Record summary:
U11 spliceosomal RNA: a 123-nucleotide sequence from Nicotiana sylvestris. It scores 65 bits against the family's covariance model. The literature on the family includes a 1988 paper in Proc Natl Acad Sci U S A by Montzka and Steitz, "Additional low-abundance human small nuclear ribonucleoproteins: U11, U12, etc". Its family is annotated with mRNA 5'-splice site recognition, pre-mRNA 5'-splice site binding and U11 snRNP in the Gene Ontology. The source organism's lineage runs through Eukaryota, Euphyllophyta, Mesangiospermae, Nicotianoideae and Nicotiana.
Nucleotides: 123
Base pairs, nucleotide, nucleotide: 008076009075010074011073012072014025015024017022027047028046029045030044031043032042033041034040048071049070050069051068052067053066054065097120098119099118100117101116102115103114104113105112106111
Number, partner (000 for none) and nucleotide at each position: 001000a002000a003000a004000a005000a006000g007000g008076g009075u010074c011073g012072g013000u014025u015024g016000g017022g018000u019000a020000a021000a022017u023000a024015u025014g026000c027047c028046a029045c030044u031043c032042g033041c034040c035000c036000g037000a038000g039000a040034g041033g042032u043031g044030a045029g046028u047027g048071c049070c050069g051068u052067a053066u054065g055000g056000a057000u058000a059000u060000c061000a062000a063000g064000a065054c066053a067052u068051a069050c070049g071048g072012c073011c074010g075009a076008c077000a078000u079000a080000a081000u082000u083000u084000g085000u086000g087000g088000a089000a090000u091000u092000u093000u094000c095000a096000u097120a098119g099118g100117g101116u102115u103114g104113g105112c106111u107000a108000g109000c110000u111106g112105g113104c114103c115102a116101a117100c118099c119098c120097u121000c122000c123000a